The record is a 90-nucleotide RNA from Echinops telfairi, which matches "mir-146 microRNA precursor family" in Rfam. A reference for the family is Lagos-Quintana et al. (2002), "Identification of tissue-specific microRNAs from mouse", Curr Biol. The source organism's lineage runs through Eukaryota, Bilateria, Sarcopterygii, Tenrecinae and Echinops. Pairs were carried over by alignment from the consensus structure, which was predicted with WAR. The sequence is in the family's curated seed alignment.
[Rfam]
Nucleotides: 090
Stems, first nucleotide, its partner, number of pairs: 008081002011078003018072008034056003
Number, partner (000 for none) and nucleotide at each position: 001000u002000u003000u004000g005000g006000u007000c008081c009080c010000u011078g012077g013076c014000u015000c016000u017000g018072a019071g020070a021069a022068c023067u024066g025065a026000a027000u028000u029000c030000c031000a032000u033000a034056g035055g036054c037000u038000g039000u040000g041000a042000g043000c044000u045000c046000u047000a048000g049000c050000a051000a052000a053000u054036g055035c056034c057000c058000u059000a060000g061000g062000a063000g064000c065025u066024c067023a068022g069021u070020u071019c072018u073000g074000g075000u076013g077012c078011c079000c080009g081008g082000c083000a084000g085000g086000c087000c088000g089000u090000g